[Rfam]
RNA sequence: AUAAUGAUACUUCUAAACGUUUAGACUGCCAGCGUAAAAGGACAGCGGGUGAAAUGCCUAUGA
Numbered sequence: 001a002u003a004a005u006g007a008u009a010c011u012u013c014u015a016a017a018c019g020u021u022u023a024g025a026c027u028g029c030c031a032g033c034g035u036a037a038a039a040g041g042a043c044a045g046c047g048g049g050u051g052a053a054a055u056g057c058c059u060a061u062g063a
Stems, first nucleotide, its partner, number of pairs: 012060001013024004026045003030041001047059003